[Rfam]
Description: The record is a 126-nucleotide sequence from Roseburia zhanii, which matches "TPP riboswitch aptamer (THI element)" in Rfam. The organism belongs to Roseburia, within Bacteria. About the family: Vitamin B(1) in its active form thiamin pyrophosphate (TPP) is an essential coenzyme that is synthesised by coupling of pyrimidine and thiazole moieties in bacteria. The previously detected thiamin-regulatory element, thi box was extended, resulting in a new, highly conserved RNA secondary structure, the THI element, which is widely distributed in eubacteria and also occurs in some archaea. Analysis of operon structures identified a large number of new candidate thiamin-regulated genes, mostly transporters, in various prokaryotic organisms. The THI element is a riboswitch that directly binds to TPP to regulate gene expression through a variety of mechanisms in archaea, bacteria and eukaryotes. through a variety of mechanisms in archaea, bacteria and eukaryotes. Gene Ontology term of the family: thiamine pyrophosphate binding.
RNA sequence: CGAAAUCGCUAGGGGCGCAGAACACGUACUUUUGAUAAGUUCAUUCAACGCUGAGAGAUGAUUUUUCAUCAACCCUUAUUACUUGAACCGGAUAAUACCGGCGUAAGGAAGCAUUUAGAGAAUUAU
Number, nucleotide and partner (000 for none) at each position: 001c000002g000003a000004a000005a000006u000007c000008g112009c111010u110011a076012g075013g074014g073015g000016c000017g051018c050019a000020g000021a000022a000023c000024a000025c000026g000027u000028a000029c000030u000031u000032u000033u000034g000035a000036u000037a000038a000039g000040u000041u000042c000043a000044u000045u000046c000047a000048a000049c000050g018051c017052u000053g000054a000055g000056a000057g000058a069059u068060g067061a066062u000063u000064u000065u000066u061067c060068a059069u058070c000071a000072a000073c014074c013075c012076u011077u000078a000079u000080u000081a000082c107083u106084u105085g104086a000087a000088c101089c100090g099091g098092a000093u000094a000095a000096u000097a000098c091099c090100g089101g088102c000103g000104u085105a084106a083107g082108g000109a000110a010111g009112c008113a000114u000115u000116u000117a000118g000119a000120g000121a000122a000123u000124u000125a000126u000